[Rfam]
About this RNA
A member of the RNA family "mir-9193 microRNA precursor family" from Myotis davidii, 73 nucleotides long. The family's consensus secondary structure was predicted with RNAalifold. Its family is annotated with miRNA-mediated post-transcriptional gene silencing and RISC complex in the Gene Ontology. It scores 63 bits against the family's covariance model. Rfam 15.1 lists 6,008 matches to the family in 8 species. The source organism's lineage runs through Eukaryota, Gnathostomata, Tetrapoda, Boreoeutheria and Myotis.
RNA sequence: GGUGAGGGGGGUGGUCCCUCAGCCCGGAUUGCGAGAGGGCGCAGGCCAGACCAAGGGACCCCACCGGUGCACG
Numbered sequence: 001g002g003u004g005a006g007g008g009g010g011g012u013g014g015u016c017c018c019u020c021a022g023c024c025c026g027g028a029u030u031g032c033g034a035g036a037g038g039g040c041g042c043a044g045g046c047c048a049g050a051c052c053a054a055g056g057g058a059c060c061c062c063a064c065c066g067g068u069g070c071a072c073g
Base pairs, nucleotide, nucleotide: 001070005068008065009064011062013060014059015058016057017056018055019054022051024049026047027046029044030043031042032041033040